[Rfam]
RNA sequence: UAGUGUUAUAGCUCUUUUAGAAUUUGUCUAGCAGGUUUUGCAGUCCUCACCGGAAGACCAAC
Number, nucleotide and partner (000 for none) at each position: 001u000002a000003g000004u000005g000006u000007u000008a000009u000010a000011g000012c000013u000014c000015u000016u000017u000018u000019a000020g000021a000022a000023u000024u000025u000026g000027u000028c000029u000030a000031g000032c000033a000034g059035g058036u057037u056038u055039u054040g000041c052042a000043g050044u049045c000046c000047u000048c000049a044050c043051c000052g041053g000054a039055a038056g037057a036058c035059c034060a000061a000062c000